The family of this 247-nucleotide part of an RNA from an uncultured Flavobacteriia bacterium is "Bacterial large subunit ribosomal RNA". It is one of the family's seed sequences. Pairs were carried over by alignment from the consensus structure, which is taken from published work. Gene Ontology terms of the family: structural constituent of ribosome and ribosome. Clan: LSU clan.
Nucleotides: 247
Base pairs, nucleotide, nucleotide: 001159002158003157004156005155006154007153008152011145012144013143014142017045018044019043020042021041022040023039047102048101049100050099051098055096056095057094062089063088064087065086066085067082068081069080070079071078072077106140107139108138113133114132115131116130117129162244165242166241167240168239169185170184171183172182173181190235191234192233193231194230195229196228197227199224200223203219207218208217209216210215
Number, partner (000 for none) and nucleotide at each position: 001159g002158g003157a004156a005155u006154u007153u008152u009000g010000a011145g012144u013143g014142g015000a016000c017045c018044u019043g020042a021041c022040u023039c024000u025000a026000g027000u028000a029000c030000g031000a032000g033000a034000g035000g036000a037000c038000c039023g040022a041021g042020u043019u044018g045017g046000a047102c048101g049100u050099a051098c052000c053000u054000c055096u056095a057094g058000u059000g060000u061000a062089u063088c064087a065086g066085u067082u068081g069080u070079g071078c072077c073000g074000c075000u076000a077072g078071g079070u080069g081068c082067a083000u084000u085066g086065c087064u088063g089062a090000g091000u092000a093000g094057c095056u096055a097000c098051g099050u100049g101048c102047g103000g104000u105000c106140g107139a108138g109000a110000u111000a112000a113133g114132c115131g116130c117129u118000g119000a120000a121000a122000g123000c124000a125000u126000c127000u128000a129117a130116g131115c132114g133113c134000g135000a136000a137000a138108c139107u140106c141000a142014c143013c144012a145011c146000a147000a148000g149000a150000u151000g152008a153007g154006a155005a156004u157003u158002c159001c160000c161000u162244u163000g164000a165242a166241g167240g168239u169185c170184g171183u172182u173181g174000u175000a176000g177000a178000c179000u180000a181173c182172a183171a184170c185169g186000u187000u188000g189000a190235u191234a192233g193231g194230a195229u196228g197227c198000a199224g200223a201000u202000g203219u204000a205000c206000a207218g208217g209216u210215a211000g212000u213000a214000a215210u216209a217208c218207c219203a220000a221000a222000g223200u224199c225000g226000a227197g228196c229195a230194u231193u232000a233192c234191u235190a236000a237000u238000u239168a240167c241166c242165u243000g244162a245000u246000a247000g